[Rfam]
RNA sequence: UACCAUAAAAUACUCCGAGCCUGGCAGUCUAAGGCAAAGCUAUGAAUACCAGGCCGUUAGGGUUUAAUGGGAAACCGUUAAGCCUCCCCUGUGGAAAGGAGUACAGUUUGAACCUGG
Numbered sequence: 001u002a003c004c005a006u007a008a009a010a011u012a013c014u015c016c017g018a019g020c021c022u023g024g025c026a027g028u029c030u031a032a033g034g035c036a037a038a039g040c041u042a043u044g045a046a047u048a049c050c051a052g053g054c055c056g057u058u059a060g061g062g063u064u065u066a067a068u069g070g071g072a073a074a075c076c077g078u079u080a081a082g083c084c085u086c087c088c089c090u091g092u093g094g095a096a097a098g099g100a101g102u103a104c105a106g107u108u109u110g111a112a113c114c115u116g117g
Stems, first nucleotide, its partner, number of pairs: 004110001011103006019054006026047001028045002033041003060085011086094002
RNA: Molybdenum/Tungsten riboswitch aptamer (Moco RNA motif)